[Rfam]
This 105-nucleotide RNA sequence from Tenacibaculum sp. MAR_2009_124 belongs to the Rfam family "SAM riboswitch aptamer (S box leader)". The organism belongs to Tenacibaculum, within Bacteria. It scores 76 bits against the family's covariance model. Pairs were carried over by alignment from the consensus structure, which is taken from published work.
RNA sequence: GUGUUAUCAUGAAAGGUGGAGGGAAUAGAUCCGUUGAAACCUUGGCAACCCUUUGAAAAUCAAAGAAGGUGCUACAUUCUACUGUGAAGAACAGAGAGAUAACGA
Numbered sequence: 001g002u003g004u005u006a007u008c009a010u011g012a013a014a015g016g017u018g019g020a021g022g023g024a025a026u027a028g029a030u031c032c033g034u035u036g037a038a039a040c041c042u043u044g045g046c047a048a049c050c051c052u053u054u055g056a057a058a059a060u061c062a063a064a065g066a067a068g069g070u071g072c073u074a075c076a077u078u079c080u081a082c083u084g085u086g087a088a089g090a091a092c093a094g095a096g097a098g099a100u101a102a103c104g105a
Stems, first nucleotide, its partner, number of pairs: 002104007013043005021032003026081004044073004049069002051065004077097001082094004